[Rfam]
RNA sequence: GGCAGGAUCAGCCCCAGAGCCGGCCGGACGGCCGCCUGUGAUAGGGGCCCCGGUCAAAACCUCUG
Numbered sequence: 001g002g003c004a005g006g007a008u009c010a011g012c013c014c015c016a017g018a019g020c021c022g023g024c025c026g027g028a029c030g031g032c033c034g035c036c037u038g039u040g041a042u043a044g045g046g047g048c049c050c051c052g053g054u055c056a057a058a059a060c061c062u063c064u065g
Stems, first nucleotide, its partner, number of pairs: 011048005016042001021034005
RNA: Pyrobaculum sRNA 209